RNA sequence: UGUGUCUGUGAUGACAGCUUGGCUCCCUCUACUGAGCACAAUGAGGAUAUUGCCCGUGUUACCCAAGUCUUGCUGAGACACU
Number, nucleotide and partner (000 for none) at each position: 001u000002g081003u080004g079005u078006c077007u000008g000009u000010g000011a000012u000013g000014a000015c000016a000017g000018c000019u000020u000021g000022g000023c000024u000025c000026c000027c000028u000029c000030u000031a000032c000033u000034g000035a000036g000037c000038a000039c000040a000041a000042u000043g000044a000045g000046g000047a000048u000049a000050u000051u000052g000053c000054c000055c000056g000057u000058g000059u000060u000061a000062c000063c000064c000065a000066a000067g000068u000069c000070u000071u000072g000073c000074u000075g000076a000077g006078a005079c004080a003081c002082u000

Background
The family of this 82-nucleotide RNA sequence from Electrophorus electricus is "Small nucleolar RNA SNORD100". It scores 75 bits against the family's covariance model. Pairs were carried over by alignment from the consensus structure, which was predicted with RNAalifold. Clan: SNORD100 clan.